Shown here is a 133-nucleotide sequence from Paractinoplanes rishiriensis, a member of the family "c-di-AMP riboswitch aptamer (ydaO/yuaA leader)". The pairing is the family consensus, mapped onto this sequence. From the family's description: This family represents a conserved RNA structure found upstream of the ydaO and yuaA genes in Bacillus subtilis and related genes in other bacteria.
RNA sequence: GGCAGGCCACCGCCUAAUCGCCGCAAGGCGAGCCGGGGAACCAGGUCAGUGGGGUGCAUCCGCAGUAAUGCGGUAGGGAUCGCUUCCGUCCCGAACCCGUCAGCUAACUCGGUCGGCGGUAACCCGGAAGGAA
Numbered sequence: 001g002g003c004a005g006g007c008c009a010c011c012g013c014c015u016a017a018u019c020g021c022c023g024c025a026a027g028g029c030g031a032g033c034c035g036g037g038g039a040a041c042c043a044g045g046u047c048a049g050u051g052g053g054g055u056g057c058a059u060c061c062g063c064a065g066u067a068a069u070g071c072g073g074u075a076g077g078g079a080u081c082g083c084u085u086c087c088g089u090c091c092c093g094a095a096c097c098c099g100u101c102a103g104c105u106a107a108c109u110c111g112g113u114c115g116g117c118g119g120u121a122a123c124c125c126g127g128a129a130g131g132a133a
Base pairs, nucleotide, nucleotide: 011118012117013116014115018031019030020029032113033112034111035110036109037108042051043050052098053097054096060073061072062071063070076092077091078090079089